[Rfam]
RNA sequence: CGAGUAAGUCAGAUAGUCGCGGCAUCUUUUAUAAGAUGACGAGGAAAGUCCGAGCUCCGCAGGGCAGGGUGCUGGGUAGCUCCCAGUAGAGGUGACUCUAAGGAAAGUGCAACAGAGAUAUACCGCUCAAUAACUAAAGGCUGUCUUUUAGAGAUUGCUUUGAUGUUGAGUAAGGGUGGAAAGGUGAGGUAAGAGCUCACCAGCGGUCAGGUGACUGGCUGGCUAUGUAAACCCCAUCCGGAGCAAGACCAAGUAGGGAUAAGGUAGCGAUUGCCCGUCGUGUCCCGUGGUAGGUUGCUUGAGCCUAUUGGUAACAAUAGGUCUAGAUAGAUGACUAUCGAAUACAGAACUCGGCUUAUAGAUUUAACUCGCUCC
Number, nucleotide and partner (000 for none) at each position: 001c371002g370003a369004g368005u366006a365007a364008g363009u362010c361011a359012g339013a338014u337015a336016g335017u334018c333019g000020c041021g040022g000023c038024a037025u036026c035027u034028u033029u000030u000031a000032u000033a028034a027035g026036a025037u024038g023039a000040c021041g020042a000043g000044g000045a000046a357047a356048g355049u000050c354051c353052g352053a351054g350055c243056u242057c241058c240059g000060c000061a000062g276063g275064g274065c273066a000067g239068g238069g237070u236071g235072c086073u085074g084075g083076g082077u000078a000079g000080c000081u000082c076083c075084c074085a073086g072087u101088a099089g098090a097091g096092g000093u000094g000095a000096c091097u090098c089099u088100a000101a087102g234103g233104a000105a000106a000107g232108u231109g228110c227111a226112a000113c000114a000115g000116a000117g000118a000119u000120a000121u000122a000123c175124c174125g171126c170127u169128c168129a167130a166131u165132a164133a000134c000135u000136a000137a000138a000139g000140g000141c000142u000143g000144u000145c000146u000147u000148u000149u000150a000151g000152a000153g000154a000155u000156u000157g000158c000159u000160u000161u000162g000163a000164u132165g131166u130167u129168g128169a127170g126171u125172a000173a000174g124175g123176g000177u000178g000179g000180a000181a000182a000183g201184g200185u199186g198187a197188g196189g000190u000191a000192a000193g000194a000195g000196c188197u187198c186199a185200c184201c183202a000203g223204c221205g220206g219207u218208c217209a216210g215211g000212u000213g000214a000215c210216u209217g208218g207219c206220u205221g204222g000223c203224u000225a000226u111227g110228u109229a000230a000231a108232c107233c103234c102235c071236a070237u069238c068239c067240g058241g057242a056243g055244c000245a000246a000247g296248a295249c294250c293251a000252a000253g000254u000255a000256g000257g286258g285259a000260u000261a000262a000263g000264g000265u000266a000267g281268c280269g279270a278271u277272u000273g065274c064275c063276c062277g271278u270279c269280g268281u267282g000283u000284c000285c258286c257287g000288u000289g000290g000291u000292a000293g250294g249295u248296u247297g000298c000299u000300u000301g000302a000303g322304c321305c320306u319307a318308u317309u316310g315311g000312u000313a000314a000315c310316a309317a308318u307319a306320g305321g304322u303323c000324u000325a000326g000327a000328u000329a000330g000331a000332u000333g018334a017335c016336u015337a014338u013339c012340g000341a000342a000343u000344a000345c000346a000347g000348a000349a000350c054351u053352c052353g051354g050355c048356u047357u046358a000359u011360a000361g010362a009363u008364u007365u006366a005367a000368c004369u003370c002371g001372c000373u000374c000375c000
Rfam assigns this 375-nucleotide RNA from Tindallia californiensis to the family "Bacterial RNase P class A".
A search with the family's covariance model found it, with a score of 292 bits.
Clan: RNaseP clan.
Rfam classes the family as a ribozyme.
Its family is annotated with dimeric ribonuclease P complex, ribonuclease P activity and tRNA processing in the Gene Ontology.
NCBI's taxonomy places the organism under Bacteria, Clostridia, Peptostreptococcales, Tindalliaceae, Tindallia.
The base pairs follow the family's consensus structure, which is taken from published work.